[Rfam]
Nucleotides: 074
Stems, first nucleotide, its partner, number of pairs: 004074005011025004041068002044066005051059001
Number, partner (000 for none) and nucleotide at each position: 001000g002000u003000g004074u005073a006072u007071u008070c009000a010000a011025u012024g013023g014022g015000a016000a017000u018000u019000g020000a021000a022014c023013c024012u025011a026000c027000a028000a029000a030000u031000u032000c033000a034000c035000c036000a037000a038000u039000u040000u041068u042067g043000a044066g045065u046064u047063g048062a049000a050000c051059g052000c053000u054000u055000u056000a057000a058000c059051c060000a061000c062048u063047c064046a065045g066044u067042c068041a069000u070008g071007a072006a073005u074004g